The record is a 373-nucleotide RNA from Lacibacter luteus, which matches "transfer-messenger RNA" in Rfam.
It scores 120 bits against the family's covariance model.
By type it is a non-coding RNA gene.
The source organism's lineage runs through Bacteria, Pseudomonadati, Bacteroidota, Chitinophagia and Lacibacter.
Rfam describes the family as follows. Bacterial tmRNA, also known as 10Sa RNA or SsrA, is named for its dual tRNA and mRNA-like properties.
Clan: tRNA clan.
The family's consensus secondary structure is taken from published work.

RNA sequence: GGGGCUGCCUGGUUUUGACAGCAUAGAUCUUUGAAGGUGUAAGCAUGCCGUGCGUUGUGUAAUUAGCACGUAAAUCUGAAUACUCAAAACUCAAAUGGCAAUACACAGUAUGCCAUGGCUGCGUAAUCAGUGAUUAUUCAGUCAUUAGGGCCGCCGAACAGGUUGAUCUGUUACCAAGUUCCGCCGCCGACUCAAAAACAAAACAGGUUGCUGUAACACAAGGCUGUGACUGUUACAAAAGACUCAUUCAGCUAAGUACUGUAUUGGUAGGUUCAGGUCCUGUACAGUGCCGACAAUUAAUCGUGAAAUAAGCAUGUAGAAAGCUUUUGGCGAAUAUGUUUGGACAGCGGUUCGAGUCCGCUCAGCUCCACUU
Numbered sequence: 001g002g003g004g005c006u007g008c009c010u011g012g013u014u015u016u017g018a019c020a021g022c023a024u025a026g027a028u029c030u031u032u033g034a035a036g037g038u039g040u041a042a043g044c045a046u047g048c049c050g051u052g053c054g055u056u057g058u059g060u061a062a063u064u065a066g067c068a069c070g071u072a073a074a075u076c077u078g079a080a081u082a083c084u085c086a087a088a089a090c091u092c093a094a095a096u097g098g099c100a101a102u103a104c105a106c107a108g109u110a111u112g113c114c115a116u117g118g119c120u121g122c123g124u125a126a127u128c129a130g131u132g133a134u135u136a137u138u139c140a141g142u143c144a145u146u147a148g149g150g151c152c153g154c155c156g157a158a159c160a161g162g163u164u165g166a167u168c169u170g171u172u173a174c175c176a177a178g179u180u181c182c183g184c185c186g187c188c189g190a191c192u193c194a195a196a197a198a199c200a201a202a203a204c205a206g207g208u209u210g211c212u213g214u215a216a217c218a219c220a221a222g223g224c225u226g227u228g229a230c231u232g233u234u235a236c237a238a239a240a241g242a243c244u245c246a247u248u249c250a251g252c253u254a255a256g257u258a259c260u261g262u263a264u265u266g267g268u269a270g271g272u273u274c275a276g277g278u279c280c281u282g283u284a285c286a287g288u289g290c291c292g293a294c295a296a297u298u299a300a301u302c303g304u305g306a307a308a309u310a311a312g313c314a315u316g317u318a319g320a321a322a323g324c325u326u327u328u329g330g331c332g333a334a335u336a337u338g339u340u341u342g343g344a345c346a347g348c349g350g351u352u353c354g355a356g357u358c359c360g361c362u363c364a365g366c367u368c369c370a371c372u373u
Stems, first nucleotide, its partner, number of pairs: 001369007019342002021339005035328003039324002044316005049070005056086002059083003115145007151189001153187002156181004162175001164173001166208007212237007222253005256290009266280002272307003276302002346362005